[Rfam]
mir-551 microRNA precursor family: a 72-nucleotide RNA from Xenopus tropicalis. Rfam 15.1 lists 1,097 matches to the family in 627 species. The base pairs follow the family's consensus structure, which was predicted with RNAalifold.

RNA sequence: UGACCUUGGAAACCAAGAGUGGGUUGGGCCUGUUAGAUCACAUAGGCGACCCAUACUUGGUUUCAAGGGUUA
Numbered sequence: 001u002g003a004c005c006u007u008g009g010a011a012a013c014c015a016a017g018a019g020u021g022g023g024u025u026g027g028g029c030c031u032g033u034u035a036g037a038u039c040a041c042a043u044a045g046g047c048g049a050c051c052c053a054u055a056c057u058u059g060g061u062u063u064c065a066a067g068g069g070u071u072a
Stems, first nucleotide, its partner, number of pairs: 002071006009064006016057002021052004028047004